[Rfam]
RNA sequence: GAGUGUGUAGGAGAGAUUUAUCUAAAAAAAGUGGAAACAAGGAAACACUCAAUUUAGAUAAAUCAAUAA
Numbered sequence: 001g002a003g004u005g006u007g008u009a010g011g012a013g014a015g016a017u018u019u020a021u022c023u024a025a026a027a028a029a030a031g032u033g034g035a036a037a038c039a040a041g042g043a044a045a046c047a048c049u050c051a052a053u054u055u056a057g058a059u060a061a062a063u064c065a066a067u068a069a
Stems, first nucleotide, its partner, number of pairs: 015064005022057002031048003

The record is a 69-nucleotide RNA from Prochlorococcus marinus, which matches "Cyano-1 RNA" in Rfam. The base pairs follow the family's consensus structure, which is taken from published work. Rfam 15.1 lists 283 matches to the family in 194 species. Lineage of the source: Bacteria > Cyanobacteriota > Synechococcales > Prochlorococcaceae > Prochlorococcus marinus.